[Rfam]
RNA sequence: UAAUGGCAAGAAUGAUGAAAACAAAUUAGAUGUGUGAGGGGUGAAUGCCUCUAUGAGCUCAAACAUCGAGGCUUAUUGAUAUUUUGACUUGCCUUAA
Numbered sequence: 001u002a003a004u005g006g007c008a009a010g011a012a013u014g015a016u017g018a019a020a021a022c023a024a025a026u027u028a029g030a031u032g033u034g035u036g037a038g039g040g041g042u043g044a045a046u047g048c049c050u051c052u053a054u055g056a057g058c059u060c061a062a063a064c065a066u067c068g069a070g071g072c073u074u075a076u077u078g079a080u081a082u083u084u085u086g087a088c089u090u091g092c093c094u095u096a097a
Stems, first nucleotide, its partner, number of pairs: 001097001003095001005093006
This 97-nucleotide sequence from Anisodus acutangulus belongs to the Rfam family "Small nucleolar RNA Z266".
For this family Rfam cites "The high diversity of snoRNAs in plants: identification and comparative study of 120 snoRNA genes from Oryza sativa" (Chen et al., Nucleic Acids Res, 2003).